The record is a 74-nucleotide sequence from Bombycilla garrulus, which matches "U1A polyadenylation inhibition element (PIE)" in Rfam. The literature on the family includes a 2000 paper in Nat Struct Biol by Varani et al., "The NMR structure of the 38 kDa U1A protein - PIE RNA complex reveals the basis of cooperativity in regulation of polyadenylation by human U1A protein".

RNA sequence: UUUCCCAGCAUUGUACCCAGGGUCUCUCCGCAGACAUUGCACCUGGAGCUGCCCCAAAAAUCCCAAAAAAACCC
Numbered sequence: 001u002u003u004c005c006c007a008g009c010a011u012u013g014u015a016c017c018c019a020g021g022g023u024c025u026c027u028c029c030g031c032a033g034a035c036a037u038u039g040c041a042c043c044u045g046g047a048g049c050u051g052c053c054c055c056a057a058a059a060a061u062c063c064c065a066a067a068a069a070a071a072c073c074c
Stems, first nucleotide, its partner, number of pairs: 006051004017046004022035004
Its family is annotated with regulation of mRNA polyadenylation in the Gene Ontology.
Rfam describes the family as follows. This family represents the U1A polyadenylation inhibition element (PIE). PIE is a regulatory RNA which is responsible for the regulation of the length of the polyA tail of the U1A pre-mRNA. The PIE is located in the U1A mRNA 3' UTR. PIE adopts a U-shaped structure, with binding sites for a single U1A protein at each bend and when complexed with the two proteins it blocks activity of poly(A) polymerase (PAP), and inhibits its activity.
The source organism's lineage runs through Eukaryota, Sauropsida, Archelosauria, Bombycillidae and Bombycilla.
Rfam classes the family as a cis-regulatory element.